Shown here is a 128-nucleotide RNA, a member of the family "Ruegeria cis8 sRNA".
It is annotated as a small RNA.
It scores 109 bits against the family's covariance model.

RNA sequence: ACCGCCAGGACCUUGGCGAUAUAGGGGAUCAGCGGCAGGUUCAGGAUGAGAAGCACCAGAUUUCCGAGAUACAUGGAAAUGAUGACCGCCCAGAAGAUUUGCGGUUCGUCCACCAUCAGGCGUGGACC
Numbered sequence: 001a002c003c004g005c006c007a008g009g010a011c012c013u014u015g016g017c018g019a020u021a022u023a024g025g026g027g028a029u030c031a032g033c034g035g036c037a038g039g040u041u042c043a044g045g046a047u048g049a050g051a052a053g054c055a056c057c058a059g060a061u062u063u064c065c066g067a068g069a070u071a072c073a074u075g076g077a078a079a080u081g082a083u084g085a086c087c088g089c090c091c092a093g094a095a096g097a098u099u100u101g102c103g104g105u106u107c108g109u110c111c112a113c114c115a116u117c118a119g120g121c122g123u124g125g126a127c128c
Base pairs, nucleotide, nucleotide: 003018004017005016006015007014008013026128027127029125030124031123033122034121036119038114039113040112043109045107046106050102052100053099057096061093062092068086072084073083074082
Dot-bracket structure: ..((((((....)))))).......((.(((.((.(.(((..(.((...(.((...(...((.....(...(((.......))).).....))..)..)).)...)).)..)))....).))))).))